[Rfam]
RNA sequence: UUUAUGGAGGAUCGCCACCAGUCAGCGCGUUGCGCCCACUGGUGCGAUUGUC
Number, nucleotide and partner (000 for none) at each position: 001u000002u000003u000004a000005u000006g000007g000008a000009g000010g000011a000012u000013c000014g000015c000016c044017a043018c042019c041020a040021g039022u038023c000024a000025g035026c034027g033028c032029g000030u000031u000032g028033c027034g026035c025036c000037c000038a022039c021040u020041g019042g018043u017044g016045c000046g000047a000048u000049u000050g000051u000052c000

The record is a 52-nucleotide RNA from Aliiruegeria lutimaris, which matches "ffh sRNA" in Rfam. A search with the family's covariance model found it, with a score of 62 bits. By type it is a small RNA.